[Rfam]
RNA: mir-33 microRNA precursor family
RNA sequence: CCAUGGUGCAUUGUCGUUGCAUUGCAUGUGUCUCUAUACCCCUAUGUAGUGCAAGAACAGUGCAAUAUGG
Numbered sequence: 001c002c003a004u005g006g007u008g009c010a011u012u013g014u015c016g017u018u019g020c021a022u023u024g025c026a027u028g029u030g031u032c033u034c035u036a037u038a039c040c041c042c043u044a045u046g047u048a049g050u051g052c053a054a055g056a057a058c059a060g061u062g063c064a065a066u067a068u069g070g
Stems, first nucleotide, its partner, number of pairs: 001070004006066001007064008019052001021050007